RNA sequence: ACAGUACAAACUGAUCAGGCCAAUAAAUUUUUAUUUAUGGGAGCCGGGCCUUAAUUUAGGCAACAGGAUAUUAUAUACCUGUGGGACAGUA
Numbered sequence: 001a002c003a004g005u006a007c008a009a010a011c012u013g014a015u016c017a018g019g020c021c022a023a024u025a026a027a028u029u030u031u032u033a034u035u036u037a038u039g040g041g042a043g044c045c046g047g048g049c050c051u052u053a054a055u056u057u058a059g060g061c062a063a064c065a066g067g068a069u070a071u072u073a074u075a076u077a078c079c080u081g082u083g084g085g086a087c088a089g090u091a
Base pairs, nucleotide, nucleotide: 010090011089012088013087016085018045019044020043023038024037025036026035027034048061049060050059051058063082064081065080066079067078
RNA: NiCo (Nickel/Cobalt) riboswitch aptamer